The record is a 127-nucleotide RNA from Diachasma alloeum, which matches "U4atac minor spliceosomal RNA" in Rfam. The source organism's lineage runs through Eukaryota, Eumetazoa, Bilateria, Altocrustacea and Diachasma. U4atac is an essential component of the minor U12-type spliceosome complex which is required for removal of the rarer class of eukaryotic introns (AT-AC, U12-type). The family has 61 seed sequences and 1,648 matches in Rfam 15.1. It scores 87 bits against the family's covariance model. Rfam classes the family as a spliceosomal small nuclear RNA.
RNA sequence: CUCGUCCUUGUCUUUGGGGAGCAUAGUAUUCAAUGAUCGUCUAGUGAGGGUACUGAUGCUGAAACCAAUGUAAAUUGAAUAACCCGCAUCCGUGUACACAUGUACACGUGUUGCAAUUUUUGGACGG
Number, nucleotide and partner (000 for none) at each position: 001c000002u000003c000004g000005u019006c018007c017008u016009u000010g000011u000012c000013u000014u000015u000016g008017g007018g006019g005020a000021g059022c058023a057024u056025a054026g053027u052028a051029u050030u049031c048032a000033a000034u000035g000036a000037u000038c044039g000040u000041c000042u000043a000044g038045u000046g000047a000048g031049g030050g029051u028052a027053c026054u025055g000056a024057u023058g022059c021060u000061g000062a000063a000064a000065c000066c000067a000068a000069u000070g000071u000072a000073a000074a000075u000076u000077g000078a000079a000080u000081a000082a000083c000084c000085c000086g114087c113088a112089u000090c110091c108092g107093u106094g105095u104096a103097c102098a000099c000100a000101u000102g097103u096104a095105c094106a093107c092108g091109u000110g090111u000112u088113g087114c086115a000116a000117u000118u000119u000120u000121u000122g000123g000124a000125c000126g000127g000